[Rfam]
This 117-nucleotide sequence from Brevibacillus brevis belongs to the Rfam family "TPP riboswitch aptamer (THI element)". The match comes from Rfam's covariance-model search (63 bits). Its family is annotated with thiamine pyrophosphate binding in the Gene Ontology. The family's consensus secondary structure is taken from published work. Taxonomically the source falls in Brevibacillus brevis (Bacteria, Bacillati, Bacilli, Caryophanales).
RNA sequence: ACAAGCAACUUGGGGAGUCCUUCAUGCGGGGCUGAGAGGAUGGAAGCAAUCGACCAUCGACCCAUUGCACCUGAUCCGGAUCAUGCCGGCGCAGGGAUACGGUUGCCGGCAGACAGC
Numbered sequence: 001a002c003a004a005g006c007a008a009c010u011u012g013g014g015g016a017g018u019c020c021u022u023c024a025u026g027c028g029g030g031g032c033u034g035a036g037a038g039g040a041u042g043g044a045a046g047c048a049a050u051c052g053a054c055c056a057u058c059g060a061c062c063c064a065u066u067g068c069a070c071c072u073g074a075u076c077c078g079g080a081u082c083a084u085g086c087c088g089g090c091g092c093a094g095g096g097a098u099a100c101g102g103u104u105g106c107c108g109g110c111a112g113a114c115a116g117c
Stems, first nucleotide, its partner, number of pairs: 006105005011064004017032005039058005070095004076089004